[Rfam]
RNA: mir-3015 microRNA precursor family
RNA sequence: GUUCUAACAAUGUCCGGUAAAGUGUCGCUUAACUUUAACCAAACAUUGUAAGAACGA
Numbered sequence: 001g002u003u004c005u006a007a008c009a010a011u012g013u014c015c016g017g018u019a020a021a022g023u024g025u026c027g028c029u030u031a032a033c034u035u036u037a038a039c040c041a042a043a044c045a046u047u048g049u050a051a052g053a054a055c056g057a
Base pairs, nucleotide, nucleotide: 001055002054003053004052005051007049008048009047010046011045013043016040017039018038020036021035022034024033025032